The record is a 47-nucleotide sequence from Griffonia simplicifolia, which matches "Plastid-rpl16 group II-D1 intron" in Rfam. Rfam links the family to the GO term Group II intron splicing.
[Rfam]
RNA sequence: AAGAGCCCCGAGUCAAUAAAAACUGAGAAGGUUGGCUCAAGAAAAAA
Number, nucleotide and partner (000 for none) at each position: 001a000002a000003g000004a000005g000006c000007c041008c000009c000010g038011a037012g036013u035014c034015a033016a032017u031018a000019a000020a000021a000022a000023c000024u000025g000026a000027g000028a000029a000030g000031g017032u016033u015034g014035g013036c012037u011038c010039a000040a000041g007042a000043a000044a000045a000046a000047a000

The family has 538 seed sequences and 1,446 matches in Rfam 15.1. A reference for the family is Richter et al. (2023), "Retrograde signaling in plants: A critical review focusing on the GUN pathway and beyond", Plant Commun. From the family's description: Plastid-rpl16 is a non-coding RNA (ncRNA) recognised in plastids. It was recognised in and intronic region of a ribosome rpl16 gene.